[Rfam]
RNA sequence: CGGGAUCUGUCCCGUGGGAAUGUGGCUUCUAAGAAAGCUGAACCGUGAA
Number, nucleotide and partner (000 for none) at each position: 001c014002g013003g012004g011005a010006u000007c000008u000009g000010u005011c004012c003013c002014g001015u000016g000017g044018g043019a000020a000021u000022g000023u000024g039025g038026c037027u036028u035029c000030u000031a000032a000033g000034a000035a028036a027037g026038c025039u024040g000041a000042a000043c018044c017045g000046u000047g000048a000049a000
The family of this 49-nucleotide RNA sequence from Methanolobus halotolerans is "eL15-Euryarchaeota ribosomal protein leader".
Taxonomically the source falls in Methanolobus (Archaea, Methanobacteriota, Methanomicrobia, Methanosarcinales).